[Rfam]
RNA sequence: CGCCAGCUGCCGAUCGGGGCAGUUGAAGGACCAAUCGGGGUCAGUGAA
Numbered sequence: 001c002g003c004c005a006g007c008u009g010c011c012g013a014u015c016g017g018g019g020c021a022g023u024u025g026a027a028g029g030a031c032c033a034a035u036c037g038g039g040g041u042c043a044g045u046g047a048a
Base pairs, nucleotide, nucleotide: 004025005024006023007022008021009020010019011018029042030041031040032039
Annotation: The family of this 48-nucleotide sequence is "gut-2 RNA". By type it is a small RNA.